[Rfam]
RNA: sRNA-Xcc1
RNA sequence: GGUCGGGCGUGCGGCUAAUACAACACCUCUGCCGAGGAGGGAAUACGCCCGCCGACUGUGUACGGUUUUGAGCACCCGACCACCCUCUC
Numbered sequence: 001g002g003u004c005g006g007g008c009g010u011g012c013g014g015c016u017a018a019u020a021c022a023a024c025a026c027c028u029c030u031g032c033c034g035a036g037g038a039g040g041g042a043a044u045a046c047g048c049c050c051g052c053c054g055a056c057u058g059u060g061u062a063c064g065g066u067u068u069u070g071a072g073c074a075c076c077c078g079a080c081c082a083c084c085c086u087c088u089c
Base pairs, nucleotide, nucleotide: 001081002080003079004078005077006076007075009073013049014048015047016045017044026040027039028038029037030036051066052065053064054063